A member of the RNA family "SAH (S-adenosyl-L-homocysteine) riboswitch aptamer" from Novilysobacter concretionis, 112 nucleotides long. It scores 50 bits against the family's covariance model. The organism belongs to Novilysobacter concretionis, within Bacteria. The base pairs follow the family's consensus structure, which is taken from published work.

[Rfam]
RNA sequence: UUCGCCGAGGGGCGCUGCGACCGUGACUUCGAGCACGGCCAGGCUUGGCGGGACCGAUGGGCACGUCCAGUUCCAAUGGCACGCCCGUCCGCAACAACGGCGCCCGGUUGCC
Numbered sequence: 001u002u003c004g005c006c007g008a009g010g011g012g013c014g015c016u017g018c019g020a021c022c023g024u025g026a027c028u029u030c031g032a033g034c035a036c037g038g039c040c041a042g043g044c045u046u047g048g049c050g051g052g053a054c055c056g057a058u059g060g061g062c063a064c065g066u067c068c069a070g071u072u073c074c075a076a077u078g079g080c081a082c083g084c085c086c087g088u089c090c091g092c093a094a095c096a097a098c099g100g101c102g103c104c105c106g107g108u109u110g111c112c
Stems, first nucleotide, its partner, number of pairs: 002051007021038005
Dot-bracket structure: .(((((((............(((((........)))))......))))))).............................................................